[Rfam]
RNA sequence: AUGGAGGUGAUGACUAUUUCCCCAGAUGAUCGAAGCUGAUUAUACUGAGCGCAUUAUUUAUCUCUUUCGAGAGAUCAAGCCAAUUUGUCUGAUCCAU
Numbered sequence: 001a002u003g004g005a006g007g008u009g010a011u012g013a014c015u016a017u018u019u020c021c022c023c024a025g026a027u028g029a030u031c032g033a034a035g036c037u038g039a040u041u042a043u044a045c046u047g048a049g050c051g052c053a054u055u056a057u058u059u060a061u062c063u064c065u066u067u068c069g070a071g072a073g074a075u076c077a078a079g080c081c082a083a084u085u086u087g088u089c090u091g092a093u094c095c096a097u
Stems, first nucleotide, its partner, number of pairs: 001097005
RNA: Small nucleolar RNA Z103
Organism: Cannabis sativa